[Rfam]
RNA: skipping-rope RNA
RNA sequence: AGACUUAGAGGAUAGGAAUUGCAGUACUAUCGCCCCGUAAUUGGAAGGAGACGCAAGGUAGCUGCGCUUGCCUAAGUCU
Numbered sequence: 001a002g003a004c005u006u007a008g009a010g011g012a013u014a015g016g017a018a019u020u021g022c023a024g025u026a027c028u029a030u031c032g033c034c035c036c037g038u039a040a041u042u043g044g045a046a047g048g049a050g051a052c053g054c055a056a057g058g059u060a061g062c063u064g065c066g067c068u069u070g071c072c073u074a075a076g077u078c079u
Stems, first nucleotide, its partner, number of pairs: 001079008011031005021065005033048001035044003053071005